RNA sequence: AUUGGCCAUUUACACUUCUUUACAAUUCAUACAACUUCUGAUUUGUAUGAAUUGUAAAGAAGUGGUAAUGUUUAUC
Numbered sequence: 001a002u003u004g005g006c007c008a009u010u011u012a013c014a015c016u017u018c019u020u021u022a023c024a025a026u027u028c029a030u031a032c033a034a035c036u037u038c039u040g041a042u043u044u045g046u047a048u049g050a051a052u053u054g055u056a057a058a059g060a061a062g063u064g065g066u067a068a069u070g071u072u073u074a075u076c
Base pairs, nucleotide, nucleotide: 007070008069009068010067013064014063015062016061017060018059019058020057021056022055023054024053025052027050028049029048030047031046
The record is a 76-nucleotide sequence from Leptidea sinapis, which matches "mir-1 microRNA precursor family" in Rfam. A reference for the family is Lee and Ambros (2001), "An extensive class of small RNAs in Caenorhabditis elegans", Science. NCBI's taxonomy places the organism under Eukaryota, Panarthropoda, Endopterygota, Lepidoptera, Leptidea. It scores 46 bits against the family's covariance model. The family has 137 seed sequences and 4,474 matches in Rfam 15.1. Rfam's curators write: This family represents the microRNA (miRNA) mir-1 family. miRNAs are transcribed as ~70nt precursors (modelled here) and subsequently processed by the Dicer enzyme to give a ~22nt product. The base pairs follow the family's consensus structure, which was predicted with RNAalifold.